[Rfam]
A member of the RNA family "MIR390 microRNA precursor family" from Capsicum baccatum, 125 nucleotides long.

RNA sequence: AUGGAGAAUCUGUAAAGCUCAGGAGGGAUAGCACCAUGGAUACAUCUCCAUGAGCUUGUGCACUUGGCUUUUUGUUUUUUUGCCAUCUAUAGCGCUAUCCAUCCUGAGUUUUAUGGCUUCUUCGU
Dot-bracket structure: .........(.....(((((((((.(((((((.(.........................................................).))))))).))))))))).....).........
Numbered sequence: 001a002u003g004g005a006g007a008a009u010c011u012g013u014a015a016a017g018c019u020c021a022g023g024a025g026g027g028a029u030a031g032c033a034c035c036a037u038g039g040a041u042a043c044a045u046c047u048c049c050a051u052g053a054g055c056u057u058g059u060g061c062a063c064u065u066g067g068c069u070u071u072u073u074g075u076u077u078u079u080u081u082g083c084c085a086u087c088u089a090u091a092g093c094g095c096u097a098u099c100c101a102u103c104c105u106g107a108g109u110u111u112u113a114u115g116g117c118u119u120c121u122u123c124g125u
Stems, first nucleotide, its partner, number of pairs: 010116001016110009026100007034092001
A search with the family's covariance model found it, with a score of 91 bits.
Lineage of the source: Eukaryota > Viridiplantae > Streptophyta > Tracheophyta > Capsicum.
The family's consensus secondary structure was predicted with WAR.